Rfam assigns this 110-nucleotide RNA sequence to the family "Actinomyces-1 RNA".

[Rfam]
RNA sequence: ACUGCCGCUGGACGGAAUCGGUCACGAGGGUUGGGGAGCCCAAUGACUGGCAGGUAUCCGAGUUCGGAACGGGUUUUAGGGAGCCCGGACCGGGCGCUCCGGCGAAGGAG
Numbered sequence: 001a002c003u004g005c006c007g008c009u010g011g012a013c014g015g016a017a018u019c020g021g022u023c024a025c026g027a028g029g030g031u032u033g034g035g036g037a038g039c040c041c042a043a044u045g046a047c048u049g050g051c052a053g054g055u056a057u058c059c060g061a062g063u064u065c066g067g068a069a070c071g072g073g074u075u076u077u078a079g080g081g082a083g084c085c086c087g088g089a090c091c092g093g094g095c096g097c098u099c100c101g102g103c104g105a106a107g108g109a110g
Base pairs, nucleotide, nucleotide: 006104007103008102009101010100011099012098013060014059015058016057018054019053021051022050023049024048028041029040030039031038032037062095063094064093065092066091067090070087071086072085073084074083